[Rfam]
RNA sequence: CAGCAUGUGGGGGCUGCAACCCAAGGGCGGUAGCGUU
Numbered sequence: 001c002a003g004c005a006u007g008u009g010g011g012g013g014c015u016g017c018a019a020c021c022c023a024a025g026g027g028c029g030g031u032a033g034c035g036u037u
Stems, first nucleotide, its partner, number of pairs: 008023004
Rfam assigns this 37-nucleotide RNA from Gallaecimonas xiamenensis to the family "JUMPstart RNA". The match comes from Rfam's covariance-model search (37 bits). Taxonomically the source falls in Gallaecimonas xiamenensis (Bacteria, Pseudomonadota, Gallaecimonadaceae, Gallaecimonas).